[Rfam]
RNA sequence: AGGCAGCCCCUUUGUCGAGAUCAAUGACAAAGGAGGUGUUGUUUUGCUCGGAAAUUAAUGUAAAAAGCUUUUGCGUCUUCAGGUUGGCCGAGAGAAUCUUCUCUCCUUGAGGCUAAUCUAGUAAUGCCUAAGCACAUU
Numbered sequence: 001a002g003g004c005a006g007c008c009c010c011u012u013u014g015u016c017g018a019g020a021u022c023a024a025u026g027a028c029a030a031a032g033g034a035g036g037u038g039u040u041g042u043u044u045u046g047c048u049c050g051g052a053a054a055u056u057a058a059u060g061u062a063a064a065a066a067g068c069u070u071u072u073g074c075g076u077c078u079u080c081a082g083g084u085u086g087g088c089c090g091a092g093a094g095a096a097u098c099u100u101c102u103c104u105c106c107u108u109g110a111g112g113c114u115a116a117u118c119u120a121g122u123a124a125u126g127c128c129u130a131a132g133c134a135c136a137u138u
Base pairs, nucleotide, nucleotide: 002040003039004038005037007036008035009033010032011031012030013029014028015027016026017025068132069131070130073127074126076124081119082118083117084116085115087113088112089111092105093104094103
Small nucleolar RNA snoR77: a 138-nucleotide RNA sequence from Rhynchospora breviuscula. A reference for the family is Marker et al. (2002), "Experimental RNomics: identification of 140 candidates for small non-messenger RNAs in the plant Arabidopsis thaliana", Curr Biol. Its family is annotated with RNA processing and nucleolus in the Gene Ontology. Rfam classes the family as an H/ACA-box small nucleolar RNA. Rfam 15.1 lists 649 matches to the family in 221 species. Lineage of the source: Eukaryota > Poales > Cyperaceae > Cyperoideae > Rhynchospora.